Nucleotides: 088
Stems, first nucleotide, its partner, number of pairs: 025082008037069003041065004045060004
Number, partner (000 for none) and nucleotide at each position: 001000c002000g003000g004000c005000u006000g007000u008000a009000g010000c011000u012000a013000a014000a015000g016000c017000g018000a019000u020000u021000u022000c023000a024000u025082g026081a027080g028079a029078a030077g031076u032075u033000u034000a035000c036000u037069g038068g039067c040000c041065g042064g043063u044062c045060g046059u047058u048057g049000u050000g051000c052000u053000a054000u055000g056000u057048c058047g059046a060045c061000g062044g063043a064042u065041c066000u067039g068038c069037u070000u071000a072000c073000c074000g075032a076031g077030c078029u079028u080027c081026u082025c083000a084000c085000a086000u087000u088000u

Notes: The record is an 88-nucleotide RNA sequence from Prunus yedoensis, which matches "Small nucleolar RNA snoR109" in Rfam. Its family is annotated with nucleolus and RNA processing in the Gene Ontology. The family's consensus secondary structure was predicted with WAR. The family has 6 seed sequences and 680 matches in Rfam 15.1. Taxonomically the source falls in Prunus yedoensis (Eukaryota, Viridiplantae, Magnoliopsida, Gunneridae). The family's RNA type in Rfam is H/ACA-box small nucleolar RNA. It scores 83 bits against the family's covariance model.